The record is a 90-nucleotide RNA sequence from Kushneria sinocarnis, which matches "SAH (S-adenosyl-L-homocysteine) riboswitch aptamer" in Rfam.
RNA sequence: UGCGCCGAGGAGCGCUGCAGCCGGUUCGACCGGCCAGGCUCGGCAGCAGAAGCCACCCCCUUACCUUGCCAACAACGGCGCUCGGCUUUC
Numbered sequence: 001u002g003c004g005c006c007g008a009g010g011a012g013c014g015c016u017g018c019a020g021c022c023g024g025u026u027c028g029a030c031c032g033g034c035c036a037g038g039c040u041c042g043g044c045a046g047c048a049g050a051a052g053c054c055a056c057c058c059c060c061u062u063a064c065c066u067u068g069c070c071a072a073c074a075a076c077g078g079c080g081c082u083c084g085g086c087u088u089u090c
Base pairs, nucleotide, nucleotide: 004044005043006042007041008040021033022032023031024030025029
Background:
It scores 59 bits against the family's covariance model.